[Rfam]
RNA: U7 small nuclear RNA
Organism: Malurus cyaneus
RNA sequence: CAGUGAUUUCAGCUCUUUUAGAAUUUGUCUAGCAGGUUUCCCCCCUUGGCGGGAAGCCGCU
Numbered sequence: 001c002a003g004u005g006a007u008u009u010c011a012g013c014u015c016u017u018u019u020a021g022a023a024u025u026u027g028u029c030u031a032g033c034a035g036g037u038u039u040c041c042c043c044c045c046u047u048g049g050c051g052g053g054a055a056g057c058c059g060c061u
Stems, first nucleotide, its partner, number of pairs: 035058008043049001